Annotation
The family of this 76-nucleotide sequence from Halothiobacillus neapolitanus is "SAH (S-adenosyl-L-homocysteine) riboswitch aptamer". Lineage of the source: Bacteria > Pseudomonadota > Gammaproteobacteria > Chromatiales > Halothiobacillus neapolitanus. The base pairs follow the family's consensus structure, which is taken from published work.
RNA sequence: UUCCUCAAGGAGCGCUGCAACCCCAUCCGGGGUGAGGCUUGAGGGGUUGGCUUUCAUUCAACGGCGCUCUGAAACC
Numbered sequence: 001u002u003c004c005u006c007a008a009g010g011a012g013c014g015c016u017g018c019a020a021c022c023c024c025a026u027c028c029g030g031g032g033u034g035a036g037g038c039u040u041g042a043g044g045g046g047u048u049g050g051c052u053u054u055c056a057u058u059c060a061a062c063g064g065c066g067c068u069c070u071g072a073a074a075c076c
Stems, first nucleotide, its partner, number of pairs: 002045007021032004